Rfam assigns this 122-nucleotide sequence from Allorhizobium borbori to the family "TPP riboswitch aptamer (THI element)". Vitamin B(1) in its active form thiamin pyrophosphate (TPP) is an essential coenzyme that is synthesised by coupling of pyrimidine and thiazole moieties in bacteria. Lineage of the source: Bacteria > Pseudomonadati > Alphaproteobacteria > Hyphomicrobiales > Allorhizobium.
RNA sequence: CUCGCUCUAACGGGGUGCCCCGGUUUCGACCGGGGCUGAGAGGCAUUGGCCGUGUUCACGGUUGCCAACCCGAAGAACCUGAUCCGGUUAGCACCGGCGGAGGGAUUAGACGGCUCGCAUCC
Numbered sequence: 001c002u003c004g005c006u007c008u009a010a011c012g013g014g015g016u017g018c019c020c021c022g023g024u025u026u027c028g029a030c031c032g033g034g035g036c037u038g039a040g041a042g043g044c045a046u047u048g049g050c051c052g053u054g055u056u057c058a059c060g061g062u063u064g065c066c067a068a069c070c071c072g073a074a075g076a077a078c079c080u081g082a083u084c085c086g087g088u089u090a091g092c093a094c095c096g097g098c099g100g101a102g103g104g105a106u107u108a109g110a111c112g113g114c115u116c117g118c119a120u121c122c
Base pairs, nucleotide, nucleotide: 006110007109008108009107010106011072012071013070014069017036018035019034020033021032022031023030043065044064045063047061078103079102080101084097085096086095087094
Annotation: It scores 66 bits against the family's covariance model.